[Rfam]
RNA sequence: AUCCAUGUUUCUUUCUCUCCUCCUCCUCCCCCCCUCCUAUCUACUCUCUAAAAAAAAAAAAAGUUCACAACCGCAUGCAAGAGCAACCUGGAGAGACUUUGACAGCUCAGGUCAGCAUAAUACCUGCAGCUGCCACUUGCCUUUCCUAUAUCU
Numbered sequence: 001a002u003c004c005a006u007g008u009u010u011c012u013u014u015c016u017c018u019c020c021u022c023c024u025c026c027u028c029c030c031c032c033c034c035u036c037c038u039a040u041c042u043a044c045u046c047u048c049u050a051a052a053a054a055a056a057a058a059a060a061a062a063g064u065u066c067a068c069a070a071c072c073g074c075a076u077g078c079a080a081g082a083g084c085a086a087c088c089u090g091g092a093g094a095g096a097c098u099u100u101g102a103c104a105g106c107u108c109a110g111g112u113c114a115g116c117a118u119a120a121u122a123c124c125u126g127c128a129g130c131u132g133c134c135a136c137u138u139g140c141c142u143u144u145c146c147u148a149u150a151u152c153u
Stems, first nucleotide, its partner, number of pairs: 008057003014054001090146006105133002108126004
This 153-nucleotide RNA from Myotis davidii belongs to the Rfam family "Small nucleolar RNA SNORA44". The family's RNA type in Rfam is H/ACA-box small nucleolar RNA. Lineage of the source: Eukaryota > Bilateria > Teleostomi > Eutheria > Myotis. Pairs were carried over by alignment from the consensus structure, which was predicted with PFOLD. Clan: SNORA44 clan. Gene Ontology terms of the family: nucleolus and RNA processing. The match comes from Rfam's covariance-model search (91 bits).